The family of this 123-nucleotide RNA sequence from Gossypium australe is "Small nucleolar RNA snoR100". Lineage of the source: Eukaryota > Viridiplantae > Streptophytina > Malvaceae > Gossypium. A search with the family's covariance model found it, with a score of 96 bits. The family's consensus secondary structure was predicted with WAR. The literature on the family includes a 2002 paper in Curr Biol by Marker et al., "Experimental RNomics: identification of 140 candidates for small non-messenger RNAs in the plant Arabidopsis thaliana". It is annotated as an H/ACA-box small nucleolar RNA.
RNA sequence: AAAUGAAGGUAGCAUGGUAGUGUGCACAGAAACUGAAUCGUACGAUGGGACGACAUGUCUGCUCUCUCUGAACCUCAUUUCUAUUGGGGCUUUGAUGAGGGGGCCUGGUUUAGUCCCACAUUU
Numbered sequence: 001a002a003a004u005g006a007a008g009g010u011a012g013c014a015u016g017g018u019a020g021u022g023u024g025c026a027c028a029g030a031a032a033c034u035g036a037a038u039c040g041u042a043c044g045a046u047g048g049g050a051c052g053a054c055a056u057g058u059c060u061g062c063u064c065u066c067u068c069u070g071a072a073c074c075u076c077a078u079u080u081c082u083a084u085u086g087g088g089g090c091u092u093u094g095a096u097g098a099g100g101g102g103g104c105c106u107g108g109u110u111u112a113g114u115c116c117c118a119c120a121u122u123u
Base pairs, nucleotide, nucleotide: 012025013024014023015022047106048105049104051102057096058095059094061090062089063088